[Rfam]
Nucleotides: 382
Stems, first nucleotide, its partner, number of pairs: 006024006025380004033360004039340002044068006053061002075336004080111002085106003091100003115132005135332011146318002151313005159300004166292002171287004176197006198256001202251003209244003216239006224232002266275001346355002362374004
Number, partner (000 for none) and nucleotide at each position: 001000g002000a003000u004000a005000a006024u007023g008022c009021g010020g011019g012000c013000g014000a015000g016000a017000a018000a019011c020010c021009c022008g023007c024006a025380c026379a027378c028377c029000g030000a031000a032000a033360g034359a035358c036357u037000a038000a039340g040339g041000u042000u043000u044068c045067c046066u047065c048064a049063g050000c051000u052000a053061u054060g055000c056000u057000a058000a059000u060054c061053a062000g063049c064048u065047g066046a067045g068044g069000g070000u071000u072000a073000g074000u075336c076335g077334g078333g079000u080111c081110c082000u083000a084000a085106g086105g087104c088000g089000a090000a091100c092099c093098c094000g095000a096000a097000a098093g099092g100091g101000a102000c103000a104087g105086u106085c107000g108000a109000u110081g111080g112000c113000c114000a115132a116131c117130g118129g119128g120000u121000u122000a123000a124000u125000a126000u127000u128119c129118c130117c131116g132115u133000a134000c135332u136331u137330c138329u139328u140327a141326u142325a143324a144323u145322u146318g147317u148000g149000a150000u151313g152312g153311g154310g155309u156000g157000a158000c159300g160299g161298a162297g163000u164000g165000a166292u167291g168000a169000a170000a171287g172286c173285a174284c175000c176197g177196c178195g179194a180193a181192c182000u183000g184000a185000c186000g187000g188000a189000a190000u191000a192181g193180u194179u195178c196177g197176u198256u199000g200000a201000a202251g203250u204249a205000c206000c207000u208000a209244c210243c211242u212000a213000u214000a215000a216239g217238c218237u219236g220235c221234g222000c223000a224232g225231g226000c227000a228000a229000a230000u231225c232224c233000a234221c235220g236219c237218g238217g239216c240000u241000u242211g243210g244209g245000g246000a247000a248000a249204u250203a251202c252000g253000a254000u255000a256198g257000u258000a259000c260000u261000c262000g263000g264000a265000g266275u267000c268000u269000u270000c271000g272000g273000a274000c275266a276000a277000a278000g279000a280000g281000a282000u283000a284174g285173u286172g287171u288000g289000c290000c291167u292166a293000a294000g295000g296000g297162c298161u299160u300159c301000c302000a303000a304000g305000a306000a307000a308000a309155a310154c311153c312152u313151c314000u315000a316000a317147a318146c319000u320000u321000a322145g323144a324143u325142u326141a327140u328139a329138a330137g331136a332135a333078c334077c335076c336075g337000u338000a339040c340039c341000g342000u343000a344000a345000a346355c347354c348000g349000a350000c351000a352000c353000a354347g355346g356000u357036a358035g359034u360033c361000g362374a363373g364372g365371a366000g367000a368000g369000a370000a371365u372364c373363c374362u375000a376000a377028g378027g379026u380025g381000c382000u